[Rfam]
RNA: mir-7398 microRNA precursor family
Organism: Vombatus ursinus
RNA sequence: UGUGUAGAGGUAGGGAAAUAAUGCCGUGUUUUCUCUCCAGGCAAAUCCUUGCCUCUCACAAU
Numbered sequence: 001u002g003u004g005u006a007g008a009g010g011u012a013g014g015g016a017a018a019u020a021a022u023g024c025c026g027u028g029u030u031u032u033c034u035c036u037c038c039a040g041g042c043a044a045a046u047c048c049u050u051g052c053c054u055c056u057c058a059c060a061a062u
Stems, first nucleotide, its partner, number of pairs: 002059003006056006013050003017046001023042003